[Rfam]
RNA sequence: UUUAAAUGACGUUCGGCUAAGUUCCUCACGUCCUGUGAGAACGCCGAACUGGCUUGUCCUGG
Numbered sequence: 001u002u003u004a005a006a007u008g009a010c011g012u013u014c015g016g017c018u019a020a021g022u023u024c025c026u027c028a029c030g031u032c033c034u035g036u037g038a039g040a041a042c043g044c045c046g047a048a049c050u051g052g053c054u055u056g057u058c059c060u061g062g
Base pairs, nucleotide, nucleotide: 011049012048013047014046015045016044017043025039026038027037028036029035054062055061

Annotation: This 62-nucleotide RNA from Alteribacillus bidgolensis belongs to the Rfam family "Bacillaceae-1 RNA". It scores 52 bits against the family's covariance model. The base pairs follow the family's consensus structure, which is taken from published work.